Group II catalytic intron D1-D4-3: a 124-nucleotide RNA sequence from Fuerstiella marisgermanici. The organism belongs to Fuerstiella, within Bacteria. The base pairs follow the family's consensus structure.
[Rfam]
RNA sequence: CAAAGCUGCGAGGUUACGAACAGAAAUCGGAUACAAGGCCGGUGCGGACAGGUGAGUGAGCCAAUCAUCACGAAACCGUCUCCGUUCAUCCGCAUUGGUAAAUCCGGAGCUUGUGCAGCGAAAG
Dot-bracket structure: (...(((((((((((...........((((((.....(((.(((((((..(((..((((........))))...)))...........))))))).)))..))))))))))).))))))....)